[Rfam]
Nucleotides: 300
Base pairs, nucleotide, nucleotide: 003063004062006060007059009057010056011055012054015051016050020048021047024044025043026042027041029039065255066254067253068252069251070250071249072248075243076242078241079240083236084235085234087232088231089230092228093227096109097108098107116219117218118217119216120215121214122207123206124205125204126203127200128199129198130197132194133193134192135191136190141187143185145182146181147180148179149176150175155173156172157171158170159169160168161167257292258291259290260289261288262287263286264285265284266283269280270279271278
Number, partner (000 for none) and nucleotide at each position: 001000a002000c003063g004062g005000a006060g007059g008000g009057g010056c011055g012054g013000a014000a015051g016050g017000c018000c019000a020048a021047g022000a023000u024044c025043g026042a027041a028000a029039c030000g031000g032000a033000a034000g035000a036000g037000a038000a039029g040000g041027u042026u043025c044024g045000a046000u047021c048020u049000c050016c051015c052000a053000u054012c055011c056010g057009c058000a059007c060006u061000u062004c063003c064000c065255a066254g067253c068252a069251c070250g071249g072248a073000c074000g075243c076242c077000a078241g079240g080000c081000a082000c083236c084235c085234a086000c087232g088231c089230g090000g091000a092228g093227c094000g095000c096109g097108c098107c099000g100000c101000g102000a103000c104000a105000a106000g107098g108097g109096c110000a111000g112000a113000a114000g115000c116219g117218u118217u119216g120215u121214g122207g123206g124205c125204c126203u127200g128199c129198g130197a131000a132194a133193u134192u135191c136190g137000a138000a139000u140000u141187c142000a143185c144000g145182u146181c147180g148179g149176c150175a151000a152000u153000g154000g155173c156172c157171u158170c159169g160168c161167a162000c163000a164000g165000g166000u167161u168160g169159c170158g171157g172156g173155g174000a175150u176149g177000a178000a179148c180147c181146g182145g183000c184000g185143g186000g187141g188000u189000g190136c191135g192134g193133a194132u195000g196000a197130u198129c199128g200127c201000c202000g203126a204125g205124g206123c207122c208000g209000c210000a211000g212000a213000a214121c215120a216119c217118a218117a219116c220000c221000c222000g223000a224000c225000a226000a227093g228092c229000a230089c231088g232087c233000u234085u235084g236083g237000u238000a239000a240079c241078c242076g243075g244000g245000u246000a247000g248072u249071c250070c251069g252068u253067g254066c255065u256000a257292g258291c259290g260289g261288g262287c263286g264285g265284u266283g267000a268000g269280g270279c271278c272000g273000a274000c275000g276000a277000c278271g279270g280269c281000u282000a283266c284265g285264c286263c287262g288261c289260c290259c291258g292257c293000u294000u295000c296000g297000a298000u299000g300000u
Background: This 300-nucleotide RNA sequence from Nocardia cerradoensis belongs to the Rfam family "Mycobacterium smegmatis small RNA 1". A search with the family's covariance model found it, with a score of 164 bits. Gene Ontology term of the family: RNA polymerase binding. NCBI's taxonomy places the organism under Bacteria, Bacillati, Actinomycetes, Mycobacteriales, Nocardia. Mycobacterium smegmatis small RNA 1 is highly expressed during stationary phase of growth. Ms1 RNA directly interacts with RNA polymerase (RNAP), but in a different way than 6S, which is present in other bacteria.